Overview:
This 52-nucleotide sequence belongs to the Rfam family "serC leader". It is one of the family's seed sequences. It is annotated as a cis-regulatory leader. Rfam describes the family as follows. This family is a putative regulatory RNA structure that is found upstream of the serC-serA operon in some alpha-proteobacteria. The final stem of the structure overlaps the ribosome binding site of the serC reading frame.
RNA sequence: CCAUGGGACACCUCUCCCCAACGAGAGGCAAUUAUCUGUAAGGGUAACAGAC
Numbered sequence: 001c002c003a004u005g006g007g008a009c010a011c012c013u014c015u016c017c018c019c020a021a022c023g024a025g026a027g028g029c030a031a032u033u034a035u036c037u038g039u040a041a042g043g044g045u046a047a048c049a050g051a052c
Stems, first nucleotide, its partner, number of pairs: 011028006032047006